RNA sequence: CUGCAUGUUAUCCAAGAGCUGUGGCUUCCUGCAAUAGCUACAGCUCUCCAACGACAUGCGAGAGCAACGGGAAGGUCUUUGACUGCUGGGCCUCUCUUGCCCGUUGCUGUCACUCGCCCCUCCGAUAUAU
Numbered sequence: 001c002u003g004c005a006u007g008u009u010a011u012c013c014a015a016g017a018g019c020u021g022u023g024g025c026u027u028c029c030u031g032c033a034a035u036a037g038c039u040a041c042a043g044c045u046c047u048c049c050a051a052c053g054a055c056a057u058g059c060g061a062g063a064g065c066a067a068c069g070g071g072a073a074g075g076u077c078u079u080u081g082a083c084u085g086c087u088g089g090g091c092c093u094c095u096c097u098u099g100c101c102c103g104u105u106g107c108u109g110u111c112a113c114u115c116g117c118c119c120c121u122c123c124g125a126u127a128u129a130u
Base pairs, nucleotide, nucleotide: 012043017039018038019037020036021035022034070123071122072121074119075118085110086109087103088102089101090100
The record is a 130-nucleotide RNA sequence from Rostratula benghalensis, which matches "Small nucleolar RNA SNORA44" in Rfam. For this family Rfam cites "RNomics: an experimental approach that identifies 201 candidates for novel, small, non-messenger RNAs in mouse" (Huttenhofer et al., EMBO J, 2001). Gene Ontology terms of the family: RNA processing and nucleolus. Rfam 15.1 lists 1,056 matches to the family in 599 species.